[Rfam]
RNA: Selenocysteine insertion sequence 4
Organism: Sellimonas intestinalis
RNA sequence: GGUACCUGUACGCGUUGCGGUGCAACGCUCGUGAAAGG
Numbered sequence: 001g002g003u004a005c006c007u008g009u010a011c012g013c014g015u016u017g018c019g020g021u022g023c024a025a026c027g028c029u030c031g032u033g034a035a036a037g038g
Stems, first nucleotide, its partner, number of pairs: 005031001013027006
Dot-bracket structure: ....(.......((((((...))))))...).......